The family of this 75-nucleotide sequence from Capsicum baccatum is "Plastid-ycf2 5UTR RNA". Rfam's curators write: Plastid ycf2 is a non-coding RNA (ncRNA) recognised in plastids. It was found in the prime untranslated region (5UTR) of ycf2 genes, it presents a tRNA-like motif which suggests it can be involved in mRNA maturation, particularly involved in defining the precise 5' end of the transcript.
RNA sequence: GUGCAUUCAGUAGGAAUUGAACCUACGAAUUCGUCAAUUAUGAGUUGGGCUCUUUAACCGUUCAACCAUGAAUUC
Numbered sequence: 001g002u003g004c005a006u007u008c009a010g011u012a013g014g015a016a017u018u019g020a021a022c023c024u025a026c027g028a029a030u031u032c033g034u035c036a037a038u039u040a041u042g043a044g045u046u047g048g049g050c051u052c053u054u055u056a057a058c059c060g061u062u063c064a065a066c067c068a069u070g071a072a073u074u075c
Stems, first nucleotide, its partner, number of pairs: 003075001005073004010026005040069003044066007